[Rfam]
RNA sequence: AAUCAAACAGAAGGGGUCAUCUUGUUCGCGUCGAGUGUUUUUCAGACUGCGUUCUGUCAUGACGGCUUUCGGUGGUAUCCUGUUGGUGAAGGCAUCUAACUAUGCUGGGAUUUACAGCUACUCGGGACAGUUCAGCUUUGCAUUCGCCUUGUUCCCACCGACAAGAUCCGCAGCUAAGGUUCAAAGCAGCACCGGGACCCAUCUCGAGUUGGAGUCAAAGUUUCGUACUUGUCUGGUGUUGUGGCGGGCCUAACCGUGGGUUGAGUUCGAGGUUGCCGGGUCGCACAGCUGGACUGAGUUGUACCGUUGGAUCUUGGACAGGCCUAGUUGGAUAGGUAGUCCUGGUUGUCCUCUCGCCAGAAAUGGUGCGGAGGGCAACCCCCCGCAGAGG
Numbered sequence: 001a002a003u004c005a006a007a008c009a010g011a012a013g014g015g016g017u018c019a020u021c022u023u024g025u026u027c028g029c030g031u032c033g034a035g036u037g038u039u040u041u042u043c044a045g046a047c048u049g050c051g052u053u054c055u056g057u058c059a060u061g062a063c064g065g066c067u068u069u070c071g072g073u074g075g076u077a078u079c080c081u082g083u084u085g086g087u088g089a090a091g092g093c094a095u096c097u098a099a100c101u102a103u104g105c106u107g108g109g110a111u112u113u114a115c116a117g118c119u120a121c122u123c124g125g126g127a128c129a130g131u132u133c134a135g136c137u138u139u140g141c142a143u144u145c146g147c148c149u150u151g152u153u154c155c156c157a158c159c160g161a162c163a164a165g166a167u168c169c170g171c172a173g174c175u176a177a178g179g180u181u182c183a184a185a186g187c188a189g190c191a192c193c194g195g196g197a198c199c200c201a202u203c204u205c206g207a208g209u210u211g212g213a214g215u216c217a218a219a220g221u222u223u224c225g226u227a228c229u230u231g232u233c234u235g236g237u238g239u240u241g242u243g244g245c246g247g248g249c250c251u252a253a254c255c256g257u258g259g260g261u262u263g264a265g266u267u268c269g270a271g272g273u274u275g276c277c278g279g280g281u282c283g284c285a286c287a288g289c290u291g292g293a294c295u296g297a298g299u300u301g302u303a304c305c306g307u308u309g310g311a312u313c314u315u316g317g318a319c320a321g322g323c324c325u326a327g328u329u330g331g332a333u334a335g336g337u338a339g340u341c342c343u344g345g346u347u348g349u350c351c352u353c354u355c356g357c358c359a360g361a362a363a364u365g366g367u368g369c370g371g372a373g374g375g376c377a378a379c380c381c382c383c384c385g386c387a388g389a390g391g
Base pairs, nucleotide, nucleotide: 196216197215198214199212200211201210218230219229220228221227
Dot-bracket structure: ...................................................................................................................................................................................................((((((........))).))).((((.....)))).................................................................................................................................................................